[Rfam]
Iron response element I: a 35-nucleotide RNA from Ursus americanus. Pairs were carried over by alignment from the consensus structure, which is taken from published work.
RNA sequence: UGGACUCUUGCUUCAACAGUGUUUGGAUGGAACAA
Numbered sequence: 001u002g003g004a005c006u007c008u009u010g011c012u013u014c015a016a017c018a019g020u021g022u023u024u025g026g027a028u029g030g031a032a033c034a035a
Base pairs, nucleotide, nucleotide: 001035003033006031007030008029010028012027013026014025015024016023017021

The match comes from Rfam's covariance-model search (36 bits). The literature on the family includes a 2006 paper in Science by Walden et al., "Structure of dual function iron regulatory protein 1 complexed with ferritin IRE-RNA". The family's RNA type in Rfam is cis-regulatory element.